[Rfam]
Notes
The record is a 110-nucleotide sequence from Microbacterium ginsengisoli, which matches "TPP riboswitch aptamer (THI element)" in Rfam.
RNA sequence: GAUGUCAACCACGGGAGUCCGGUGUGCCGGGCUGAGAGGAAGCGGAUCGCGCUUCGACCGUCGAACCUGAUCUGGGUCAUGCCAGCGCAGGAAGGGAGUAUUUCGUGCAU
Numbered sequence: 001g002a003u004g005u006c007a008a009c010c011a012c013g014g015g016a017g018u019c020c021g022g023u024g025u026g027c028c029g030g031g032c033u034g035a036g037a038g039g040a041a042g043c044g045g046a047u048c049g050c051g052c053u054u055c056g057a058c059c060g061u062c063g064a065a066c067c068u069g070a071u072c073u074g075g076g077u078c079a080u081g082c083c084a085g086c087g088c089a090g091g092a093a094g095g096g097a098g099u100a101u102u103u104c105g106u107g108c109a110u
Base pairs, nucleotide, nucleotide: 006098009095010094011061012060013059014058017032018031019030020029021028039055040054041053042052043051066091067090068089069088072085073084074083075082
The organism belongs to Microbacterium, within Bacteria. A search with the family's covariance model found it, with a score of 61 bits.